[Rfam]
Nucleotides: 110
Stems, first nucleotide, its partner, number of pairs: 006098005011060004017030004037053007066091004072085004
Number, partner (000 for none) and nucleotide at each position: 001000g002000a003000u004000a005000a006098c007097u008096a009095c010094u011060a012059g013058g014057g015000g016000u017030g018029c019028c020027c021000u022000g023000u024000u025000u026000u027020g028019g029018g030017c031000u032000g033000a034000g035000a036000g037053a038052a039051a040050a041049a042048c043047g044000c045000u046000a047043c048042g049041u050040u051039u052038u053037u054000u055000a056000a057014c058013c059012c060011u061000u062000c063000g064000g065000a066091c067090c068089u069088g070000a071000u072085c073084u074083g075082g076000a077000u078000u079000a080000u081000a082075c083074c084073a085072g086000c087000g088069u089068a090067g091066g092000a093000a094010a095009g096008u097007a098006g099000a100000g101000g102000a103000g104000a105000a106000g107000c108000a109000g110000u

This 110-nucleotide RNA from Bacillus sp. FJAT-18017 belongs to the Rfam family "TPP riboswitch aptamer (THI element)". The match comes from Rfam's covariance-model search (82 bits).